The record is a 123-nucleotide RNA from Photobacterium lipolyticum, which matches "Phenylalanine leader peptide" in Rfam. It is annotated as a cis-regulatory leader. The base pairs follow the family's consensus structure, which was predicted with CMfinder. The organism belongs to Photobacterium, within Bacteria.

[Rfam]
RNA sequence: GCCAGUCAUUCAGCUGUUUUUCUUUAGCUUCUUUUUUAUGUCACCUUAACGGGGGCUUUUCGUUACGCUAGAAACAAGCUAAAGACGAAUAGAUAGCCUCCCACAAAGGGGGGCUUUUUUGUA
Numbered sequence: 001g002c003c004a005g006u007c008a009u010u011c012a013g014c015u016g017u018u019u020u021u022c023u024u025u026a027g028c029u030u031c032u033u034u035u036u037u038a039u040g041u042c043a044c045c046u047u048a049a050c051g052g053g054g055g056c057u058u059u060u061c062g063u064u065a066c067g068c069u070a071g072a073a074a075c076a077a078g079c080u081a082a083a084g085a086c087g088a089a090u091a092g093a094u095a096g097c098c099u100c101c102c103a104c105a106a107a108g109g110g111g112g113g114c115u116u117u118u119u120u121g122u123a
Base pairs, nucleotide, nucleotide: 016090017089018088019087021085022084023083024082025081026080027079028078029077030076032074033073034072036070039067042053044052045051054064055063056062093117095115096114097113098112099111100110101109102108